c-di-GMP-II-GCG riboswitch aptamer: an 85-nucleotide sequence.
On this family, see Weinberg et al., Proc Natl Acad Sci U S A 2017: "Bioinformatic analysis of riboswitch structures uncovers variant classes with altered ligand specificity".
Rfam links the family to the GO terms regulation of gene expression and cyclic-di-GMP binding.
RNA sequence: CCCUAGCGGGAAGCUGAGAUGCGCGGCUAAACCUUUCGGUCGCCGUAGGUCGCGCGGAGCAAUGGCGAGCCCGAUCCCGUUGCAG
Numbered sequence: 001c002c003c004u005a006g007c008g009g010g011a012a013g014c015u016g017a018g019a020u021g022c023g024c025g026g027c028u029a030a031a032c033c034u035u036u037c038g039g040u041c042g043c044c045g046u047a048g049g050u051c052g053c054g055c056g057g058a059g060c061a062a063u064g065g066c067g068a069g070c071c072c073g074a075u076c077c078c079g080u081u082g083c084a085g
Stems, first nucleotide, its partner, number of pairs: 001085001004082007013060002021055008038072002040068005